Overview
This 109-nucleotide RNA sequence from Streptomyces luteoverticillatus belongs to the Rfam family "Streptomyces RNA 4115". The pairing is the family consensus, mapped onto this sequence. For this family Rfam cites "Deep sequencing-based identification of small non-coding RNAs in Streptomyces coelicolor" (Vockenhuber et al., RNA Biol, 2011). Identified by deep sequencing of transcriptome at the end of exponential growth phase. Sequencing size consistent with notrthern blot size. Streptomyces specific. It scores 85 bits against the family's covariance model. By type it is a small RNA.

RNA sequence: GCGUGGGUUGGCCCGCUGCGCUGGAACCAGUGGGCUGGGGGAGGCCGUCGCCUCAUUCCCCGCGGGCGGCGGCACGGUCCGGGAGGCGGCUCGCGCCUCCCGGACCGUA
Numbered sequence: 001g002c003g004u005g006g007g008u009u010g011g012c013c014c015g016c017u018g019c020g021c022u023g024g025a026a027c028c029a030g031u032g033g034g035c036u037g038g039g040g041g042a043g044g045c046c047g048u049c050g051c052c053u054c055a056u057u058c059c060c061c062g063c064g065g066g067c068g069g070c071g072g073c074a075c076g077g078u079c080c081g082g083g084a085g086g087c088g089g090c091u092c093g094c095g096c097c098u099c100c101c102g103g104a105c106c107g108u109a
Stems, first nucleotide, its partner, number of pairs: 001108002006075001009037010045072009076106013